Source information
Shown here is a 217-nucleotide sequence from Theropithecus gelada, a member of the family "Small nucleolar RNA U3". By type it is a C/D-box small nucleolar RNA.
[Rfam]
RNA sequence: AAGACUGGAGUUCCAGGGAUCAUUUCUAUAGUUUAUUAUUACAGAAGUUUCUCUCAAUAUGUAGAGCAGCGGAAAACCGGGAGGAAGAGGCGUAGUGUUCUGUUCUGACUGCGAAGCGGUUUUUUGGCGUGGCUUCGGUGCGACAGCUGUCUGCGGUUGAUGAUCGUUCUUCUCUCCACUUUGGAGAGCAAAAGGGAGAGGACGCCGUCUGAGCGGU
Numbered sequence: 001a002a003g004a005c006u007g008g009a010g011u012u013c014c015a016g017g018g019a020u021c022a023u024u025u026c027u028a029u030a031g032u033u034u035a036u037u038a039u040u041a042c043a044g045a046a047g048u049u050u051c052u053c054u055c056a057a058u059a060u061g062u063a064g065a066g067c068a069g070c071g072g073a074a075a076a077c078c079g080g081g082a083g084g085a086a087g088a089g090g091c092g093u094a095g096u097g098u099u100c101u102g103u104u105c106u107g108a109c110u111g112c113g114a115a116g117c118g119g120u121u122u123u124u125u126g127g128c129g130u131g132g133c134u135u136c137g138g139u140g141c142g143a144c145a146g147c148u149g150u151c152u153g154c155g156g157u158u159g160a161u162g163a164u165c166g167u168u169c170u171u172c173u174c175u176c177c178a179c180u181u182u183g184g185a186g187a188g189c190a191a192a193a194g195g196g197a198g199a200g201g202a203c204g205c206c207g208u209c210u211g212a213g214c215g216g217u
Stems, first nucleotide, its partner, number of pairs: 002040002006035004011030001015027004049065002054061001076217004095205007103197004110166002121153001125149004129144002132141002170191002172188007
On this family, see Zwieb, Nucleic Acids Res 1997: "The uRNA database". The match comes from Rfam's covariance-model search (128 bits). The organism belongs to Theropithecus, within Eukaryota. Rfam's curators write: Small nucleolar RNAs (snoRNAs) are involved in the processing and modification of rRNA in the nucleolus. There are two main classes of snoRNAs: the box C/D class, and the box H/ACA class.